[Rfam]
RNA sequence: UAGUUUUGUCCUAAGUCAAACUCGUCUAAAUUUGACCAAAUUUAUAGAAAAAAUAUAGUGACAUCUACAAUAUCAAGUAAAUGUAUUAUCAAAAUACAUUUCAUGGUGUAUCUGAUGAAUCCAGUUUGAUAUUGUAGAUGUCUGUGCAUUUUUCUAUAAACUUGGUCAAAUCUAGAGAAUUUUGAGUUAGGACAGUCUAAA
Numbered sequence: 001u002a003g004u005u006u007u008g009u010c011c012u013a014a015g016u017c018a019a020a021c022u023c024g025u026c027u028a029a030a031u032u033u034g035a036c037c038a039a040a041u042u043u044a045u046a047g048a049a050a051a052a053a054u055a056u057a058g059u060g061a062c063a064u065c066u067a068c069a070a071u072a073u074c075a076a077g078u079a080a081a082u083g084u085a086u087u088a089u090c091a092a093a094a095u096a097c098a099u100u101u102c103a104u105g106g107u108g109u110a111u112c113u114g115a116u117g118a119a120u121c122c123a124g125u126u127u128g129a130u131a132u133u134g135u136a137g138a139u140g141u142c143u144g145u146g147c148a149u150u151u152u153u154c155u156a157u158a159a160a161c162u163u164g165g166u167c168a169a170a171u172c173u174a175g176a177g178a179a180u181u182u183u184g185a186g187u188u189a190g191g192a193c194a195g196u197c198u199a200a201a
Base pairs, nucleotide, nucleotide: 006195007194008193009192011190012189013188014187016185017184018183019182020181022179025176026175031170032169033168034167035166045156046155047154048153049152050151051150052149056146057145060142061141062140063139064138065137066136067135068134069133073129074128075127076126077125078124
RNA: MIR1435 microRNA precursor family